[Rfam]
RNA sequence: UGACAGUGGUGAUGAUGAUGACAUUUGUCUCUAUCCUGAAAGCUAAUGUGUAGGUUUUCAGUCACUACCUCAUCUGAACUGUCU
Numbered sequence: 001u002g003a004c005a006g007u008g009g010u011g012a013u014g015a016u017g018a019u020g021a022c023a024u025u026u027g028u029c030u031c032u033a034u035c036c037u038g039a040a041a042g043c044u045a046a047u048g049u050g051u052a053g054g055u056u057u058u059c060a061g062u063c064a065c066u067a068c069c070u071c072a073u074c075u076g077a078a079c080u081g082u083c084u
Base pairs, nucleotide, nucleotide: 002083003082004081005080006079007078
The family of this 84-nucleotide sequence from Takifugu rubripes is "Small nucleolar RNA SNORD11B". Its family is annotated with nucleolus and RNA processing in the Gene Ontology. On this family, see Yang et al., Nucleic Acids Res 2006: "snoSeeker: an advanced computational package for screening of guide and orphan snoRNA genes in the human genome". Taxonomically the source falls in Takifugu (Eukaryota, Euteleostomi, Actinopteri, Teleostei). The family has 37 seed sequences and 733 matches in Rfam 15.1. The family is grouped with related families in Rfam's "SNORD11 clan".